[Rfam]
RNA sequence: AUCCCAGUGCAAGGGCUUUAUCCAUGGCAGUGAAGACUAUGUCUGAGCCUGGAUUUUUGCUAGUUGAAAACUACAACUACUGACUGCUCCAGUUGGCCUUCGGGCCGACUGGGAAUUUUUGACAACUCUCUUUUAGAU
Numbered sequence: 001a002u003c004c005c006a007g008u009g010c011a012a013g014g015g016c017u018u019u020a021u022c023c024a025u026g027g028c029a030g031u032g033a034a035g036a037c038u039a040u041g042u043c044u045g046a047g048c049c050u051g052g053a054u055u056u057u058u059g060c061u062a063g064u065u066g067a068a069a070a071c072u073a074c075a076a077c078u079a080c081u082g083a084c085u086g087c088u089c090c091a092g093u094u095g096g097c098c099u100u101c102g103g104g105c106c107g108a109c110u111g112g113g114a115a116u117u118u119u120u121g122a123c124a125a126c127u128c129u130c131u132u133u134u135a136g137a138u
Stems, first nucleotide, its partner, number of pairs: 020054005026049003034044003088113011